[Rfam]
RNA sequence: AGCCGCUUCGGAUAAGCUGGAAAACUCAACAGAAAAAUCGUACUGAGAUAAGUUUAGGAGUUCAAUGGCGGGCUGCACCUUCGGGUUGUCGAGAGACACGGCAGAUUACAACGAAUUCUGACACUCAAACCCUAUUUAUUAGGAGUUUUCUCACAACUUCCGAAGUGGCUUUAUUC
Numbered sequence: 001a002g003c004c005g006c007u008u009c010g011g012a013u014a015a016g017c018u019g020g021a022a023a024a025c026u027c028a029a030c031a032g033a034a035a036a037a038u039c040g041u042a043c044u045g046a047g048a049u050a051a052g053u054u055u056a057g058g059a060g061u062u063c064a065a066u067g068g069c070g071g072g073c074u075g076c077a078c079c080u081u082c083g084g085g086u087u088g089u090c091g092a093g094a095g096a097c098a099c100g101g102c103a104g105a106u107u108a109c110a111a112c113g114a115a116u117u118c119u120g121a122c123a124c125u126c127a128a129a130c131c132c133u134a135u136u137u138a139u140u141a142g143g144a145g146u147u148u149u150c151u152c153a154c155a156a157c158u159u160c161c162g163a164a165g166u167g168g169c170u171u172u173a174u175u176c
Base pairs, nucleotide, nucleotide: 052122053121054120056119058118059117060116061115062114063113066110067109073104074103075102076101077086078085079084088097089096090095